RNA sequence: GCCGGGAGGGCGGCUAAUGCAAUACCCCGCAAGGGGGAAUACGCCCACCGUCUUCACGCGGUUUCGAACCUCCCGGCAUCCCGGC
Numbered sequence: 001g002c003c004g005g006g007a008g009g010g011c012g013g014c015u016a017a018u019g020c021a022a023u024a025c026c027c028c029g030c031a032a033g034g035g036g037g038a039a040u041a042c043g044c045c046c047a048c049c050g051u052c053u054u055c056a057c058g059c060g061g062u063u064u065c066g067a068a069c070c071u072c073c074c075g076g077c078a079u080c081c082c083g084g085c
Base pairs, nucleotide, nucleotide: 001077002076003075004074005073006072007071008070009069012045013044014043015041016040025036026035027034047062048061049060050059051058